[Rfam]
RNA: MIR390 microRNA precursor family
RNA sequence: UGGAAGAAUCUGUUAAGCUCAGGAGGGAUAGCGCCAUUCUCGGUUUGGUUUAACCACAUAUAGCGCUAUCCAUCCUGAGUUUCAUGGCUUCUUCUU
Numbered sequence: 001u002g003g004a005a006g007a008a009u010c011u012g013u014u015a016a017g018c019u020c021a022g023g024a025g026g027g028a029u030a031g032c033g034c035c036a037u038u039c040u041c042g043g044u045u046u047g048g049u050u051u052a053a054c055c056a057c058a059u060a061u062a063g064c065g066c067u068a069u070c071c072a073u074c075c076u077g078a079g080u081u082u083c084a085u086g087g088c089u090u091c092u093u094c095u096u
Stems, first nucleotide, its partner, number of pairs: 010087001016081009026071009